[Rfam]
RNA sequence: UUCUUAUCCAGAAAGACCGAGGGAAUUGACCCGAUGACGUCUUGGCAACCUGUUCACAUGUGAAUAAGGUGCCACAUUCAACCCUUGCUUUGGCAGGGAUAGAUAAGCU
Numbered sequence: 001u002u003c004u005u006a007u008c009c010a011g012a013a014a015g016a017c018c019g020a021g022g023g024a025a026u027u028g029a030c031c032c033g034a035u036g037a038c039g040u041c042u043u044g045g046c047a048a049c050c051u052g053u054u055c056a057c058a059u060g061u062g063a064a065u066a067a068g069g070u071g072c073c074a075c076a077u078u079c080a081a082c083c084c085u086u087g088c089u090u091u092g093g094c095a096g097g098g099a100u101a102g103a104u105a106a107g108c109u
Stems, first nucleotide, its partner, number of pairs: 003107006013043005021032003026081004044073004049069002053063002077101001082098004
The family of this 109-nucleotide sequence from Flavobacterium kingsejongi is "SAM riboswitch aptamer (S box leader)". NCBI's taxonomy places the organism under Bacteria, Bacteroidota, Flavobacteriia, Flavobacteriales, Flavobacterium. The SAM riboswitch is found upstream of a number of genes which code for proteins involved in methionine or cysteine biosynthesis in Gram-positive bacteria. The SAM riboswitch acts at the level of transcription termination control. The predicted structure consists of a complex stem-loop region followed by a single stem loop terminator region. It scores 74 bits against the family's covariance model.